[Rfam]
RNA sequence: AGAACUACUCAAACACAAGCACUGACUUGAGUGUGUAUUCAGUAAGUGCUACUUGUUGGGGUAGUUUUG
Numbered sequence: 001a002g003a004a005c006u007a008c009u010c011a012a013a014c015a016c017a018a019g020c021a022c023u024g025a026c027u028u029g030a031g032u033g034u035g036u037a038u039u040c041a042g043u044a045a046g047u048g049c050u051a052c053u054u055g056u057u058g059g060g061g062u063a064g065u066u067u068u069g
Base pairs, nucleotide, nucleotide: 004065005064006063007062008061009060010059013056014055015054018050019049020048021047022046023045025043026042027041

miR-430 microRNA precursor family: a 69-nucleotide sequence from Etheostoma spectabile.